[Rfam]
RNA sequence: UCAAGCGAUAGAGGUGCGGAACGGAUGACGCAUGGGCGAGCCGGCGGGCAGGGACCCCACGCAAAGGCCAAGCCGCCGAAUCGCCCUGCCGGGUACGGUGGGGCGGUGGGUCCGCGGGGAACACCCACGGGACUGUCUGCAGGGAACUCUGCGGUUGAGCUAUCCCCGCG
Numbered sequence: 001u002c003a004a005g006c007g008a009u010a011g012a013g014g015u016g017c018g019g020a021a022c023g024g025a026u027g028a029c030g031c032a033u034g035g036g037c038g039a040g041c042c043g044g045c046g047g048g049c050a051g052g053g054a055c056c057c058c059a060c061g062c063a064a065a066g067g068c069c070a071a072g073c074c075g076c077c078g079a080a081u082c083g084c085c086c087u088g089c090c091g092g093g094u095a096c097g098g099u100g101g102g103g104c105g106g107u108g109g110g111u112c113c114g115c116g117g118g119g120a121a122c123a124c125c126c127a128c129g130g131g132a133c134u135g136u137c138u139g140c141a142g143g144g145a146a147c148u149c150u151g152c153g154g155u156u157g158a159g160c161u162a163u164c165c166c167c168g169c170g
Stems, first nucleotide, its partner, number of pairs: 007164005016076004023069002030062002033059004080107012108134002111131004116126003137154006
RNA: Lysine riboswitch aptamer
Organism: Olsenella profusa